[Rfam]
RNA sequence: AAUAAAGGGUGACAACGAGAGAGAGCACGCUGGAAUGCGUUCAUGCAACAAGUGCGUGGAAGUGUUCUUGCGUGCCCUUUCCCGUUGUCGCCCAUCC
Numbered sequence: 001a002a003u004a005a006a007g008g009g010u011g012a013c014a015a016c017g018a019g020a021g022a023g024a025g026c027a028c029g030c031u032g033g034a035a036u037g038c039g040u041u042c043a044u045g046c047a048a049c050a051a052g053u054g055c056g057u058g059g060a061a062g063u064g065u066u067c068u069u070g071c072g073u074g075c076c077c078u079u080u081c082c083c084g085u086u087g088u089c090g091c092c093c094a095u096c097c
Stems, first nucleotide, its partner, number of pairs: 010090005016084002020080002023077001025075006032068003
Dot-bracket structure: .........(((((.((..((.(.((((((.(((...............................))).)))))).).))..)).))))).......
The family of this 97-nucleotide RNA sequence from Ceratodon purpureus is "MIR535 microRNA precursor family". The literature on the family includes a 2010 paper in Nucleic Acids Res by Zeng et al., "Conservation and divergence of microRNAs and their functions in Euphorbiaceous plants". Gene Ontology terms of the family: RISC complex and miRNA-mediated post-transcriptional gene silencing.